[Rfam]
RNA sequence: ACUCAACAUUAAUUUUGUUUAAAAAGGGUGAGUUUAGAUUGUAAAAGCAGGCCCUACCCGUAUAGGGAUCCUUGAUCAGUCUUGUAGCCCUAAACCUGUUUAUUGGAGUUU
Numbered sequence: 001a002c003u004c005a006a007c008a009u010u011a012a013u014u015u016u017g018u019u020u021a022a023a024a025a026g027g028g029u030g031a032g033u034u035u036a037g038a039u040u041g042u043a044a045a046a047g048c049a050g051g052c053c054c055u056a057c058c059c060g061u062a063u064a065g066g067g068a069u070c071c072u073u074g075a076u077c078a079g080u081c082u083u084g085u086a087g088c089c090c091u092a093a094a095c096c097u098g099u100u101u102a103u104u105g106g107a108g109u110u111u
Stems, first nucleotide, its partner, number of pairs: 025091005036082005045073003052067004
A member of the RNA family "6S-Flavo RNA" from Zobellia galactanivorans, 111 nucleotides long. It is annotated as a small RNA. The match comes from Rfam's covariance-model search (100 bits). Pairs were carried over by alignment from the consensus structure, which is taken from published work.